[Rfam]
RNA sequence: CCUCCUUUUCUUGGCGGGGGCCGGGCGUGCGGUCCCGGUCCCCGUUAUGUACGGAGGCAGAGGGAGAGGGCUCCGGUCCCCUCGGCGUCAUGUCUUCGGUGCCGGCGGCUUCCGGUCUGCUGGUUCUAUCCUCAAGCGCCGGGACAAGU
Numbered sequence: 001c002c003u004c005c006u007u008u009u010c011u012u013g014g015c016g017g018g019g020g021c022c023g024g025g026c027g028u029g030c031g032g033u034c035c036c037g038g039u040c041c042c043c044g045u046u047a048u049g050u051a052c053g054g055a056g057g058c059a060g061a062g063g064g065a066g067a068g069g070g071c072u073c074c075g076g077u078c079c080c081c082u083c084g085g086c087g088u089c090a091u092g093u094c095u096u097c098g099g100u101g102c103c104g105g106c107g108g109c110u111u112c113c114g115g116u117c118u119g120c121u122g123g124u125u126c127u128a129u130c131c132u133c134a135a136g137c138g139c140c141g142g143g144a145c146a147a148g149u
Stems, first nucleotide, its partner, number of pairs: 001057005015044006022037004083141006102123007
The family of this 149-nucleotide RNA sequence from Loxodonta africana is "Small nucleolar RNA SNORA57". For this family Rfam cites "Identification of 13 novel human modification guide RNAs" (Vitali et al., Nucleic Acids Res, 2003). The base pairs follow the family's consensus structure, which was predicted with PFOLD. The family's RNA type in Rfam is H/ACA-box small nucleolar RNA. U99 belongs to the H/ACA class of snoRNAs which are thought to guide the sites of modification of uridines to pseudouridines, the target for this family is unknown.